[Rfam]
RNA sequence: UAUAAUCUUACUUCAUACGUUCGUAUAACCCCAUAGUUAUAGGGUGGGGGUCUCUACGGGAAGCCUUAACUUCCUUGCUACGAAUAUCGGAUCGCUUCGC
Numbered sequence: 001u002a003u004a005a006u007c008u009u010a011c012u013u014c015a016u017a018c019g020u021u022c023g024u025a026u027a028a029c030c031c032c033a034u035a036g037u038u039a040u041a042g043g044g045u046g047g048g049g050g051u052c053u054c055u056a057c058g059g060g061a062a063g064c065c066u067u068a069a070c071u072u073c074c075u076u077g078c079u080a081c082g083a084a085u086a087u088c089g090g091a092u093c094g095c096u097u098c099g100c
Stems, first nucleotide, its partner, number of pairs: 019085007029049006058075006